RNA sequence: UUUUAGCCCAGAUAGCAGUGGAAAUCCCACGCUUUUUUUGCGUGGAUUGCAACGGAUAGCUGGAAAUAGC
Dot-bracket structure: ........(((.((...((...((((.(((((.......)))))))))...))...)).)))........

Rfam assigns this 70-nucleotide RNA from Flavobacterium sp. GT3R68 to the family "Flavo-1 RNA". Lineage of the source: Bacteria > Flavobacteriia > Flavobacteriales > Flavobacteriaceae > Flavobacterium.